[Rfam]
A member of the RNA family "PyrD leader" from Citrobacter freundii, 74 nucleotides long.
It is annotated as a cis-regulatory leader.
For this family Rfam cites "Conformational heterogeneity in the Salmonella typhimurium pyrC and pyrD leader mRNAs produced in vivo" (Sorensen, Nucleic Acids Res, 1994).

RNA sequence: AUUCCCUUUUUGCUCGCGAUCGCACAUAAUACGCCCCCGGUUUGCACACCGGGAAUCCAGGAGAGUUCAUGUAC
Dot-bracket structure: ...................................((((((......)))))).....................